[Rfam]
RNA sequence: UUGCGCAAGUGAUGUUUUCGUCAGCAAUCUUAGCAAUCAUGUGCCGGCGCCUUCGACGUAUUCUUUUAACCAGAAUCACUACCCGGACACGAGUCCACUGCAACCAGACCCAAGCAGGCAGGUUGCGGCCACCACCCCCACAGGGGAUGUGCUGGCCCCCGGGUUGCACACUGCCCAGAAGGCGGCGUGAGGUGAGCCGGCGCCACAAGCGUCGAGCCGGACAGAAGAUACUCAAGGGAGGCCGACGGGCCUCCCU
Numbered sequence: 001u002u003g004c005g006c007a008a009g010u011g012a013u014g015u016u017u018u019c020g021u022c023a024g025c026a027a028u029c030u031u032a033g034c035a036a037u038c039a040u041g042u043g044c045c046g047g048c049g050c051c052u053u054c055g056a057c058g059u060a061u062u063c064u065u066u067u068a069a070c071c072a073g074a075a076u077c078a079c080u081a082c083c084c085g086g087a088c089a090c091g092a093g094u095c096c097a098c099u100g101c102a103a104c105c106a107g108a109c110c111c112a113a114g115c116a117g118g119c120a121g122g123u124u125g126c127g128g129c130c131a132c133c134a135c136c137c138c139c140a141c142a143g144g145g146g147a148u149g150u151g152c153u154g155g156c157c158c159c160c161g162g163g164u165u166g167c168a169c170a171c172u173g174c175c176c177a178g179a180a181g182g183c184g185g186c187g188u189g190a191g192g193u194g195a196g197c198c199g200g201c202g203c204c205a206c207a208a209g210c211g212u213c214g215a216g217c218c219g220g221a222c223a224g225a226a227g228a229u230a231c232u233c234a235a236g237g238g239a240g241g242c243c244g245a246c247g248g249g250c251c252u253c254c255c256u
Base pairs, nucleotide, nucleotide: 001012002011003010004009043057045055046054076195077194078193079192080191081164082163083162084161085096086095087094088093100126101125102124103123104122107119109118110117127157128156129155130154131153134148135146136145137144138143167189168188169187171185172184173183174182175181196217197216198214199213200212201211202210203209235256236255237254238253240251241250242249243248

Pseudomonas sRNA P24: a 256-nucleotide RNA from Pseudomonas sp. M47T1. Rfam classes the family as a non-coding RNA gene. This small RNA (sRNA) was computationally identified in the genome of the opportunistic pathogen Pseudomonas aeruginosa and its expression verified by Northern blot analysis. P24 is conserved across several Pseudomonas species and in Azotobacter vinelandii. The organism belongs to Pseudomonas, within Bacteria.